Overview
Rfam assigns this 66-nucleotide RNA sequence from Rattus norvegicus to the family "mir-290 microRNA precursor family". The organism belongs to Rattus, within Eukaryota. Pairs were carried over by alignment from the consensus structure, which was predicted with RNAalifold. On this family, see Houbaviy et al., Dev Cell 2003: "Embryonic stem cell-specific MicroRNAs".
[Rfam]
RNA sequence: GCCAUGCUCAAAAUGGAGGCCCUAUCUAAGCUUUUAAGUAGAAAGUGCUUCCAUUUUGUGUGUUGC
Numbered sequence: 001g002c003c004a005u006g007c008u009c010a011a012a013a014u015g016g017a018g019g020c021c022c023u024a025u026c027u028a029a030g031c032u033u034u035u036a037a038g039u040a041g042a043a044a045g046u047g048c049u050u051c052c053a054u055u056u057u058g059u060g061u062g063u064u065g066c
Base pairs, nucleotide, nucleotide: 004063005062006061007060009058010057011056012055013054014053015052016051017050018049019048020047022045023044025042026041027040